[Rfam]
RNA: Small nucleolar RNA SNORA31
RNA sequence: CAGCAUCCACUCAUAGUCCUUGAACAGUUUGAGGCUGUUCUUCUGCUUUGCACUAGGAUGCAAAAGAAAAUAUCUCCCUGUGCUUCCUGUCUGUCUUUGAGGCAGACCAGAUUGAACUGGGGAGUACAUGU
Numbered sequence: 001c002a003g004c005a006u007c008c009a010c011u012c013a014u015a016g017u018c019c020u021u022g023a024a025c026a027g028u029u030u031g032a033g034g035c036u037g038u039u040c041u042u043c044u045g046c047u048u049u050g051c052a053c054u055a056g057g058a059u060g061c062a063a064a065a066g067a068a069a070a071u072a073u074c075u076c077c078c079u080g081u082g083c084u085u086c087c088u089g090u091c092u093g094u095c096u097u098u099g100a101g102g103c104a105g106a107c108c109a110g111a112u113u114g115a116a117c118u119g120g121g122g123a124g125u126a127c128a129u130g131u
Stems, first nucleotide, its partner, number of pairs: 003061006011052001014050003019045001022040007075123006083114001087110003091105005